[Rfam]
RNA sequence: GGUCAUGAGCGCCAGCGCCAAGCCCCGGCUCGCUGGUCGGCAACCCUCCAGUUGCGGUGGGGUGCUCCGGGUGAUGACCCGGCUUCCGAGAAGACCGGGAGCAAGCGCGAUGU
Numbered sequence: 001g002g003u004c005a006u007g008a009g010c011g012c013c014a015g016c017g018c019c020a021a022g023c024c025c026c027g028g029c030u031c032g033c034u035g036g037u038c039g040g041c042a043a044c045c046c047u048c049c050a051g052u053u054g055c056g057g058u059g060g061g062g063u064g065c066u067c068c069g070g071g072u073g074a075u076g077a078c079c080c081g082g083c084u085u086c087c088g089a090g091a092a093g094a095c096c097g098g099g100a101g102c103a104a105g106c107g108c109g110a111u112g113u
Stems, first nucleotide, its partner, number of pairs: 001079004009038001011037006021030002039066003044062003048057002082102007
The family of this 113-nucleotide RNA sequence from Nocardia aurantia is "SAM (S-adenosyl methionine) riboswitch aptamer".
The literature on the family includes a 2008 paper in RNA by Weinberg et al., "The aptamer core of SAM-IV riboswitches mimics the ligand-binding site of SAM-I riboswitches".
The base pairs follow the family's consensus structure, which is taken from published work.